mir-9242 microRNA precursor family: a 64-nucleotide RNA sequence from Cnephaeus nilssonii. The family has 2 seed sequences and 940 matches in Rfam 15.1.
[Rfam]
RNA sequence: GGCCUCCCUCUGUGGGGCGAUCGAUAGCGGGGCUCCAUGAUCAAUUGCCCAGCAGAGGGAGGCC
Numbered sequence: 001g002g003c004c005u006c007c008c009u010c011u012g013u014g015g016g017g018c019g020a021u022c023g024a025u026a027g028c029g030g031g032g033c034u035c036c037a038u039g040a041u042c043a044a045u046u047g048c049c050c051a052g053c054a055g056a057g058g059g060a061g062g063c064c
Base pairs, nucleotide, nucleotide: 001064002063003062004061005060006059007058008057009056010055011054012053013052015050016049017048018047019046020045021044023042024041025040027038029036030035
The organism belongs to Cnephaeus, within Eukaryota. A search with the family's covariance model found it, with a score of 67 bits.